Shown here is a 78-nucleotide RNA sequence from Candidatus Methylopumilus turicensis, a member of the family "Burkholderia RNA 7 (anti-hemB)". By type it is a small RNA. Rfam describes the family as follows. This RNA motif was identified by computational search in b-proteobacteria Burkholderia. Co-purified with Hfq, expression confirmed by Northern blot.

RNA sequence: UCCCACGCUUCCCUCCCUGAGCGUGGCGCCUUUUAAGGCAUUUCGCCCCGACCGAUCCCCUUGGUCGGGGCUUUUUUU
Dot-bracket structure: ...((((((..........))))))..((((....))))......((((((((((.....))))))))))........
It scores 59 bits against the family's covariance model. The family has 26 seed sequences and 479 matches in Rfam 15.1. A reference for the family is Weinberg et al. (2007), "Identification of 22 candidate structured RNAs in bacteria using the CMfinder comparative genomics pipeline", Nucleic Acids Res.